[Rfam]
Overview:
A member of the RNA family "Early nodulin 40" from Salix dunnii, 205 nucleotides long. Gene Ontology term of the family: nodulation. It scores 72 bits against the family's covariance model.
Nucleotides: 205
Stems, first nucleotide, its partner, number of pairs: 036062003072159001074157003089146003188204003192200001
Number, partner (000 for none) and nucleotide at each position: 001000a002000u003000g004000g005000a006000a007000g008000u009000c010000a011000u012000u013000g014000a015000u016000c017000c018000a019000a020000g021000g022000g023000u024000u025000u026000u027000u028000a029000a030000g031000a032000g033000c034000g035000a036062g037061g038060g039000c040000u041000g042000a043000g044000g045000g046000a047000u048000u049000c050000c051000u052000c053000g054000c055000c056000c057000u058000c059000c060038u061037c062036c063000u064000a065000u066000g067000c068000u069000a070000c071000u072159u073000g074157u075156g076155c077000u078000u079000a080000g081000u082000c083000a084000u085000u086000g087000u088000c089146u090145a091144u092000g093000c094000u095000g096000a097000c098000u099000a100000c101000a102000a103000c104000a105000u106000g107000a108000a109000g110000c111000u112000u113000u114000u115000g116000c117000u118000c119000u120000g121000a122000a123000a124000g125000c126000u127000a128000g129000c130000a131000a132000a133000g134000u135000c136000u137000a138000u139000g140000g141000c142000g143000a144091a145090u146089g147000c148000a149000u150000a151000c152000c153000u154000g155076g156075c157074a158000a159072a160000c161000c162000g163000g164000c165000a166000a167000g168000u169000c170000a171000c172000a173000g174000a175000a176000c177000g178000g179000c180000a181000c182000g183000g184000u185000c186000a187000a188204g189203a190202g191000u192200c193000u194000u195000u196000u197000c198000u199000g200192g201000u202190u203189u204188u205000u
A reference for the family is Gultyaev and Roussis (2007), "Identification of conserved secondary structures and expansion segments in enod40 RNAs reveals new enod40 homologues in plants", Nucleic Acids Res.